[Rfam]
RNA sequence: UUCUCAUCACGGAUCUGUGCCCAGCAGUCCUCUGCCCGCCUGCGGGUUCAGAGUUGAUAGCUGAGGCAGCUCGAUUUCUCCUGAGGAGCCAUCACAGCUAUAAUGAUGUCAAUCGUCCAAUCGACAGAUCCUAGAUCAAGCCAUCCGUCUGGGAAACCGGGUUCGCGGUCAAACGCUGAGCCUUGGAGUACUGGCCGUGGUGGAGGCGUUAUAUUCCGCACCUUUUUUCCGAGAUCGUUUGAUCGAUGAGGUUGAGGAAAACCAUGACUUGCCGACAUUU
Numbered sequence: 001u002u003c004u005c006a007u008c009a010c011g012g013a014u015c016u017g018u019g020c021c022c023a024g025c026a027g028u029c030c031u032c033u034g035c036c037c038g039c040c041u042g043c044g045g046g047u048u049c050a051g052a053g054u055u056g057a058u059a060g061c062u063g064a065g066g067c068a069g070c071u072c073g074a075u076u077u078c079u080c081c082u083g084a085g086g087a088g089c090c091a092u093c094a095c096a097g098c099u100a101u102a103a104u105g106a107u108g109u110c111a112a113u114c115g116u117c118c119a120a121u122c123g124a125c126a127g128a129u130c131c132u133a134g135a136u137c138a139a140g141c142c143a144u145c146c147g148u149c150u151g152g153g154a155a156a157c158c159g160g161g162u163u164c165g166c167g168g169u170c171a172a173a174c175g176c177u178g179a180g181c182c183u184u185g186g187a188g189u190a191c192u193g194g195c196c197g198u199g200g201u202g203g204a205g206g207c208g209u210u211a212u213a214u215u216c217c218g219c220a221c222c223u224u225u226u227u228u229c230c231g232a233g234a235u236c237g238u239u240u241g242a243u244c245g246a247u248g249a250g251g252u253u254g255a256g257g258a259a260a261a262c263c264a265u266g267a268c269u270u271g272c273c274g275a276c277a278u279u280u
Stems, first nucleotide, its partner, number of pairs: 011131008019067003022063003027058003030053005036046001037044002075123001079119001085110002088107001090105001141200003147196001149194004159183006165176002205273003208268005222257004229251002233244004

A member of the RNA family "A. fumigatus sRNA Afu_309" from Plectosphaerella cucumerina, 280 nucleotides long.
The family's RNA type in Rfam is small RNA.
Rfam 15.1 lists 663 matches to the family in 646 species.
On this family, see Jochl et al., Nucleic Acids Res 2008: "Small ncRNA transcriptome analysis from Aspergillus fumigatus suggests a novel mechanism for regulation of protein synthesis".